[Rfam]
RNA sequence: UAGUGUCUUUACAAUAGAAGCUGCUUCAAUAGUCUUUGUAGAGACACUAAUACUAGUUAGUGCCGAAAGUUAUUAAACCGAAUGGAUUUAGUAGGUAAUUAAGUUGAAUUAACAACUUCCCUCAAGUGCUAUAUGCCGUAGGGUGGAAAAACAACGUGCCACUGAUCA
Numbered sequence: 001u002a003g004u005g006u007c008u009u010u011a012c013a014a015u016a017g018a019a020g021c022u023g024c025u026u027c028a029a030u031a032g033u034c035u036u037u038g039u040a041g042a043g044a045c046a047c048u049a050a051u052a053c054u055a056g057u058u059a060g061u062g063c064c065g066a067a068a069g070u071u072a073u074u075a076a077a078c079c080g081a082a083u084g085g086a087u088u089u090a091g092u093a094g095g096u097a098a099u100u101a102a103g104u105u106g107a108a109u110u111a112a113c114a115a116c117u118u119c120c121c122u123c124a125a126g127u128g129c130u131a132u133a134u135g136c137c138g139u140a141g142g143g144u145g146g147a148a149a150a151a152c153a154a155c156g157u158g159c160c161a162c163u164g165a166u167c168a
Stems, first nucleotide, its partner, number of pairs: 001023003007020001012017001024056002029051002033046001077096003101118006135159002137156003143152002
Record summary:
Shown here is a 168-nucleotide sequence, a member of the family "RAGATH-22 RNA".